[Rfam]
RNA: TPP riboswitch aptamer (THI element)
Organism: Paraglaciecola mesophila
RNA sequence: UUAACUACCAAGGGGUGCCGAAAGGCUGAGAUUUGUCUCUUAAGAGAUAUGACCCUUACACCUGAUCCGGAUAAUACCGGCGUAGGAAUGGUUAUUUCGUUCGCA
Numbered sequence: 001u002u003a004a005c006u007a008c009c010a011a012g013g014g015g016u017g018c019c020g021a022a023a024g025g026c027u028g029a030g031a032u033u034u035g036u037c038u039c040u041u042a043a044g045a046g047a048u049a050u051g052a053c054c055c056u057u058a059c060a061c062c063u064g065a066u067c068c069g070g071a072u073a074a075u076a077c078c079g080g081c082g083u084a085g086g087a088a089u090g091g092u093u094a095u096u097u098c099g100u101u102c103g104c105a
Stems, first nucleotide, its partner, number of pairs: 007092004011056004017026003034049006061086004067080004